[Rfam]
RNA sequence: UCCGAUAUGGUGUAGUGGCUAACAUCGCUCGCUCUCACCGAGCAGCCCUGGGUUCGAUUCCCAGUAUCGGAG
Numbered sequence: 001u002c003c004g005a006u007a008u009g010g011u012g013u014a015g016u017g018g019c020u021a022a023c024a025u026c027g028c029u030c031g032c033u034c035u036c037a038c039c040g041a042g043c044a045g046c047c048c049u050g051g052g053u054u055c056g057a058u059u060c061c062c063a064g065u066a067u068c069g070g071a072g
Base pairs, nucleotide, nucleotide: 001071002070003069004068005067006066007065010025011024012023013022027043028042029041030040031039048064049063050062051061052060

About this RNA:
The family of this 72-nucleotide RNA sequence from Trichoderma cornu-damae is "tRNA". It is annotated as a transfer RNA.